[Rfam]
RNA sequence: UUGCAUGUGGAAAUGUCUGCUUCUCAUUCCUUGGGAGCAGGAAUAUGUUCAUAACAUGCUACAUUAACAAAGGAGUUCUCAGGGCUGCCAACCUUCUAGUAAAGGUUGAGUGGUAGUAUAUUUCUCCAACAUAA
Numbered sequence: 001u002u003g004c005a006u007g008u009g010g011a012a013a014u015g016u017c018u019g020c021u022u023c024u025c026a027u028u029c030c031u032u033g034g035g036a037g038c039a040g041g042a043a044u045a046u047g048u049u050c051a052u053a054a055c056a057u058g059c060u061a062c063a064u065u066a067a068c069a070a071a072g073g074a075g076u077u078c079u080c081a082g083g084g085c086u087g088c089c090a091a092c093c094u095u096c097u098a099g100u101a102a103a104g105g106u107u108g109a110g111u112g113g114u115a116g117u118a119u120a121u122u123u124c125u126c127c128a129a130c131a132u133a134a
Base pairs, nucleotide, nucleotide: 003059004058005057006056007055008054016041017040018039019038020037021036022035023034072127073126074125075124084114085113088110089108090107091106092105093104094103095102
RNA: Small nucleolar RNA U109